Shown here is a 122-nucleotide sequence, a member of the family "LOOT RNA".
[Rfam]
RNA sequence: GACCUAACCCUCAGGAUAAUUCUUGAGGUAUGGUCGAAAAGCGCGAUCAACGUAAAAACCCCGGCAUCAGGGGCGUUGAUCGCGUUACGUGGGGAAACCUGCGUAGGGGCCGUAAGGCUCAC
Numbered sequence: 001g002a003c004c005u006a007a008c009c010c011u012c013a014g015g016a017u018a019a020u021u022c023u024u025g026a027g028g029u030a031u032g033g034u035c036g037a038a039a040a041g042c043g044c045g046a047u048c049a050a051c052g053u054a055a056a057a058a059c060c061c062c063g064g065c066a067u068c069a070g071g072g073g074c075g076u077u078g079a080u081c082g083c084g085u086u087a088c089g090u091g092g093g094g095a096a097a098c099c100u101g102c103g104u105a106g107g108g109g110c111c112g113u114a115a116g117g118c119u120c121a122c
Stems, first nucleotide, its partner, number of pairs: 001035004009028007042084011059073004086105008106122001107120004
The family's consensus secondary structure is taken from published work.